[Rfam]
RNA sequence: GGAUGAGAGUUCCAUCUGGCUGUGACAUCUGUCACCUCAUUGAUCACCAGGGUUGAUUUGACUGAUCUGGCUGGGUAGGUGGGUAUUCCCUUCCUCCCUCACCACUCCAUGUACGUUGCUCCCGAAGCUACACACUUGAUCAAAGAGGACGACCUUCCCUGUUAGAGGUGUUCCGUUCUUUGGUCAAGGGUGUACAAGUAGCUGUGUUCCCCUGCUAGAACAAGCUCCCAAGGUCCAUUUGUAGGAGAACAUAGGAUAGUCAAGCUUCCAAGACUCCAGAUACAUCCAAAUGAGGCACUGCACGUUCUAGUUGCCUUCCUUU
Numbered sequence: 001g002g003a004u005g006a007g008a009g010u011u012c013c014a015u016c017u018g019g020c021u022g023u024g025a026c027a028u029c030u031g032u033c034a035c036c037u038c039a040u041u042g043a044u045c046a047c048c049a050g051g052g053u054u055g056a057u058u059u060g061a062c063u064g065a066u067c068u069g070g071c072u073g074g075g076u077a078g079g080u081g082g083g084u085a086u087u088c089c090c091u092u093c094c095u096c097c098c099u100c101a102c103c104a105c106u107c108c109a110u111g112u113a114c115g116u117u118g119c120u121c122c123c124g125a126a127g128c129u130a131c132a133c134a135c136u137u138g139a140u141c142a143a144a145g146a147g148g149a150c151g152a153c154c155u156u157c158c159c160u161g162u163u164a165g166a167g168g169u170g171u172u173c174c175g176u177u178c179u180u181u182g183g184u185c186a187a188g189g190g191u192g193u194a195c196a197a198g199u200a201g202c203u204g205u206g207u208u209c210c211c212c213u214g215c216u217a218g219a220a221c222a223a224g225c226u227c228c229c230a231a232g233g234u235c236c237a238u239u240u241g242u243a244g245g246a247g248a249a250c251a252u253a254g255g256a257u258a259g260u261c262a263a264g265c266u267u268c269c270a271a272g273a274c275u276c277c278a279g280a281u282a283c284a285u286c287c288a289a290a291u292g293a294g295g296c297a298c299u300g301c302a303c304g305u306u307c308u309a310g311u312u313g314c315c316u317u318c319c320u321u322u
Stems, first nucleotide, its partner, number of pairs: 001108003005102001007100003014092001018090002024087002027084007035074002037070003042067004048060001117170001119167003123138003127135001141161002147158003201265003207259002211255004220242005288322003292317005297311004
7SK RNA: a 322-nucleotide RNA from Vombatus ursinus. About the family: 7SK was discovered as an abundant small nuclear RNA in the mid-70s but a possible function has only recently been suggested. Two independent studies have found that 7SK RNA binds the CDK9/cyclin T complex (known as elongation factor P-TEFb). P-TEFb activates transcription by phosphorylating the C-terminal domain of RNA polymerase II. This process is negatively regulated by the 7SK RNP. The secondary structure of 7SK RNA shown here was proposed by Wasserman and Steitz on the basis of chemical modification and enzymatic cleavage experiments. This family contains a number of annotated pseudogenes and 7SK derived repeats. Lineage of the source: Eukaryota > Metazoa > Vertebrata > Tetrapoda > Vombatus. A search with the family's covariance model found it, with a score of 238 bits. By type it is a non-coding RNA gene.